[Rfam]
Rfam assigns this 70-nucleotide sequence from Tribolium castaneum to the family "mir-1000 microRNA precursor family". Rfam 15.1 lists 152 matches to the family in 150 species.
Nucleotides: 070
Stems, first nucleotide, its partner, number of pairs: 003068004012059007022049008
Number, partner (000 for none) and nucleotide at each position: 001000g002000g003068c004067c005066a006065u007000g008000a009000u010000a011000u012059u013058g014057u015056c016055c017054u018053g019000u020000c021000a022049c023048a024047g025046c026045a027044g028043u029042a030000c031000u032000g033000g034000u035000u036000c037000c038000g039000a040000g041000u042029u043028a044027c045026u046025g047024c048023u049022g050000c051000u052000u053018c054017g055016g056015g057014a058013c059012a060000u061000g062000a063000c064000c065006a066005u067004g068003g069000c070000c